This 67-nucleotide RNA sequence from Cynoglossus semilaevis belongs to the Rfam family "Small nucleolar RNA SNORD58". On this family, see Kiss-Laszlo et al., Cell 1996: "Site-specific ribose methylation of preribosomal RNA: a novel function for small nucleolar RNAs". snoRNA U58 is found in introns 1, 3 and 6 of the ribosomal protein RPL17 gene in humans. The family's consensus secondary structure was predicted with PFOLD. The source organism's lineage runs through Eukaryota, Eumetazoa, Chordata, Clupeocephala and Cynoglossus. Its family is annotated with nucleolus and RNA processing in the Gene Ontology.
RNA sequence: UCGCCGUGAUGACCUUCUUAGGACACCUUUGGAUUCAGGAUGAAACUAACCACUAAAUCUGAGCGAC
Numbered sequence: 001u002c003g004c005c006g007u008g009a010u011g012a013c014c015u016u017c018u019u020a021g022g023a024c025a026c027c028u029u030u031g032g033a034u035u036c037a038g039g040a041u042g043a044a045a046c047u048a049a050c051c052a053c054u055a056a057a058u059c060u061g062a063g064c065g066a067c
Base pairs, nucleotide, nucleotide: 001066002065003064004063